[Rfam]
RNA sequence: GAGAUUCUUCGGGGUCGGGUGCAAAUCCCAACCGGCGGUAUAGUCCGCGACCCGGCGCGUUUAUCCGCGCUGGCUGAUCUGGUGCAAUUCCGGAACCGACAGUAAAGUCUGGAUGAGAGAAGAAUUAU
Numbered sequence: 001g002a003g004a005u006u007c008u009u010c011g012g013g014g015u016c017g018g019g020u021g022c023a024a025a026u027c028c029c030a031a032c033c034g035g036c037g038g039u040a041u042a043g044u045c046c047g048c049g050a051c052c053c054g055g056c057g058c059g060u061u062u063a064u065c066c067g068c069g070c071u072g073g074c075u076g077a078u079c080u081g082g083u084g085c086a087a088u089u090c091c092g093g094a095a096c097c098g099a100c101a102g103u104a105a106a107g108u109c110u111g112g113a114u115g116a117g118a119g120a121a122g123a124a125u126u127a128u
Stems, first nucleotide, its partner, number of pairs: 003126008017029003031108002033098002035048004043096002052073002078094005100111003